Rfam assigns this 124-nucleotide RNA sequence from Oceanobacillus oncorhynchi to the family "FMN riboswitch aptamer (RFN element)". Rfam describes the family as follows. The RFN element is a highly conserved domain that is found frequently in the 5'-untranslated regions of prokaryotic mRNAs that encode for flavin mononucleotide (FMN) biosynthesis and transport proteins. A search with the family's covariance model found it, with a score of 117 bits.

[Rfam]
RNA sequence: UCCAAUCUUCGGGGCAGGGUGUAAUUCCCGACCGGCGGAAAUAGUCCGCGAACUGUAUAACGUUACAGUUGAUCUGGUGAAAUUCCAGAACCGACAGUGAUAGUCUGGAUGGGAGAAGAUGUCG
Number, nucleotide and partner (000 for none) at each position: 001u000002c000003c000004a000005a120006u119007c118008u117009u116010c115011g000012g000013g000014g000015c000016a000017g029018g028019g027020u000021g000022u000023a000024a000025u000026u000027c019028c018029c017030g000031a104032c103033c093034g092035g049036c048037g047038g046039a000040a000041a000042u000043a000044g091045u090046c038047c037048g036049c035050g000051a000052a069053c068054u067055g000056u000057a000058u000059a000060a000061c000062g000063u000064u000065a000066c000067a054068g053069u052070u000071g000072a000073u089074c088075u087076g086077g085078u000079g000080a000081a000082a000083u000084u000085c077086c076087a075088g074089a073090a045091c044092c034093g033094a000095c107096a106097g105098u000099g000100a000101u000102a000103g032104u031105c097106u096107g095108g000109a000110u000111g000112g000113g000114a000115g010116a009117a008118g007119a006120u005121g000122u000123c000124g000